[Rfam]
RNA: mir-393 microRNA precursor family
Nucleotides: 088
Stems, first nucleotide, its partner, number of pairs: 002088005008082001010080012023067003026063006
Number, partner (000 for none) and nucleotide at each position: 001000a002088g003087a004086g005085g006084a007000a008082g009000a010080a011079u012078c013077c014076a015075a016074a017073g018072g019071g020070a021069u022000a023067g024066c025065a026063u027062g028061a029060u030059c031058c032000a033000u034000a035000u036000c037000u038000a039000a040000u041000a042000u043000u044000c045000g046000c047000g048000g049000u050000c051000u052000c053000a054000c055000u056000u057000u058031g059030g060029a061028u062027c063026a064000a065025u066024g067023c068000g069021a070020u071019c072018c073017c074016u075015u076014u077013g078012g079011a080010u081000g082008c083000c084006u085005c086004c087003u088002u